[Rfam]
RNA sequence: UGCUAUGUCUGAUUCGGCAGGAUGAGAACCUGCUGCAGGUUCGAGUCGAACGAAGUGAGACACCGGAGCCGCGUACGGCGACGGCCCGAAGGGCGAGCGAAGCGAGUCAUCCUGCACGACCCACCA
Numbered sequence: 001u002g003c004u005a006u007g008u009c010u011g012a013u014u015c016g017g018c019a020g021g022a023u024g025a026g027a028a029c030c031u032g033c034u035g036c037a038g039g040u041u042c043g044a045g046u047c048g049a050a051c052g053a054a055g056u057g058a059g060a061c062a063c064c065g066g067a068g069c070c071g072c073g074u075a076c077g078g079c080g081a082c083g084g085c086c087c088g089a090a091g092g093g094c095g096a097g098c099g100a101a102g103c104g105a106g107u108c109a110u111c112c113u114g115c116a117c118g119a120c121c122c123a124c125c126a
Stems, first nucleotide, its partner, number of pairs: 017115005023109001033095001040090004047057002064083002070080003
RNA: RtT RNA